[Rfam]
RNA sequence: CUUGACCGAGCCCAGCCACAACGGCCGCCCCGCCGACCGUUCCUGCCCGUAGGUCGCCAGCAGCGCCUGCGCCUC
Numbered sequence: 001c002u003u004g005a006c007c008g009a010g011c012c013c014a015g016c017c018a019c020a021a022c023g024g025c026c027g028c029c030c031c032g033c034c035g036a037c038c039g040u041u042c043c044u045g046c047c048c049g050u051a052g053g054u055c056g057c058c059a060g061c062a063g064c065g066c067c068u069g070c071g072c073c074u075c
Base pairs, nucleotide, nucleotide: 015025016024017023031071032070033069038065039064043060044059045058047056049054

Shown here is a 75-nucleotide RNA from Streptomyces sp. MP131-18, a member of the family "ASpks TB sRNA".
It is annotated as an antisense RNA.
The family's consensus secondary structure is taken from published work.